A member of the RNA family "mir-34 microRNA precursor family" from Xenopus tropicalis, 78 nucleotides long. Rfam's curators write: Human mir-34a was discovered computationally and later experimentally verified. Rfam links the family to the GO terms RISC complex and miRNA-mediated post-transcriptional gene silencing. Taxonomically the source falls in Silurana (Eukaryota, Opisthokonta, Chordata, Amphibia).
RNA sequence: GUUUCUUUGGCAGUGUCUUAGCUGGUUGUUGUGGCACGUUAUAGAAGUAGCAAUCAGCAAAUAUACUGCCCUAGAAGU
Numbered sequence: 001g002u003u004u005c006u007u008u009g010g011c012a013g014u015g016u017c018u019u020a021g022c023u024g025g026u027u028g029u030u031g032u033g034g035c036a037c038g039u040u041a042u043a044g045a046a047g048u049a050g051c052a053a054u055c056a057g058c059a060a061a062u063a064u065a066c067u068g069c070c071c072u073a074g075a076a077g078u
Stems, first nucleotide, its partner, number of pairs: 002077005009070002012067005018061002021058001023056010